This 306-nucleotide RNA sequence from Thermoplasmatales archaeon Gpl belongs to the Rfam family "Archaeal signal recognition particle RNA". Gene Ontology terms of the family: signal recognition particle, plasma membrane targeting and SRP-dependent cotranslational protein targeting to membrane, signal sequence recognition. Its Rfam clan is "SRP clan". Pairs were carried over by alignment from the consensus structure, which is taken from published work. Lineage of the source: Archaea > Methanobacteriati > Thermoplasmatota > Thermoplasmata > Thermoplasmatales.
RNA sequence: AGCCGGACUAGGUUGGGAAGCCAGGCUCUUCCUGUUACCCGAAGCCUAUACGCGGGAACGACAGUCCAGAGAGGCCAACCUGGCCUCUGUUAAGCCUUGAGGAAUCAAUGAGAUUUCGGCCCAGCGGAUCGGAGGAUUACAGAAAGCAAUUCAAAGGAAAUGUUUUCCGUAACUUAUUCACCAACCCCGCCAGGUCCGGAAGGGAGCAACGGUAGGUGGAACUUUUGGUGCUGCUGGAUACCGGGGUCGAGUGAACUCGGGGGUAAACUUAGCAGGACGUCAGGCCCAAUCUGGGCGCGUCCGGUA
Numbered sequence: 001a002g003c004c005g006g007a008c009u010a011g012g013u014u015g016g017g018a019a020g021c022c023a024g025g026c027u028c029u030u031c032c033u034g035u036u037a038c039c040c041g042a043a044g045c046c047u048a049u050a051c052g053c054g055g056g057a058a059c060g061a062c063a064g065u066c067c068a069g070a071g072a073g074g075c076c077a078a079c080c081u082g083g084c085c086u087c088u089g090u091u092a093a094g095c096c097u098u099g100a101g102g103a104a105u106c107a108a109u110g111a112g113a114u115u116u117c118g119g120c121c122c123a124g125c126g127g128a129u130c131g132g133a134g135g136a137u138u139a140c141a142g143a144a145a146g147c148a149a150u151u152c153a154a155a156g157g158a159a160a161u162g163u164u165u166u167c168c169g170u171a172a173c174u175u176a177u178u179c180a181c182c183a184a185c186c187c188c189g190c191c192a193g194g195u196c197c198g199g200a201a202g203g204g205a206g207c208a209a210c211g212g213u214a215g216g217u218g219g220a221a222c223u224u225u226u227g228g229u230g231c232u233g234c235u236g237g238a239u240a241c242c243g244g245g246g247u248c249g250a251g252u253g254a255a256c257u258c259g260g261g262g263g264u265a266a267a268c269u270u271a272g273c274a275g276g277a278c279g280u281c282a283g284g285c286c287c288a289a290u291c292u293g294g295g296c297g298c299g300u301c302c303g304g305u306a
Base pairs, nucleotide, nucleotide: 002305003304004303005302006301007300008299012059013058014057015033016032017031018030019029020028038056039055040054041053064296065295066294067293068292069291070290073287074286076284079283086276087275088274089273090272091271092270093269094268095262096261097260098259099258100257101256106251112248113247114246115245116244117243118242119241121237122236123235124234125233126232127231128229129228130227131226132224133223134222135174137172138171139170140169142167143166144165145164146163147162148161150159151158152157177220178219179218180217181216182215187212188211189210195204196203197202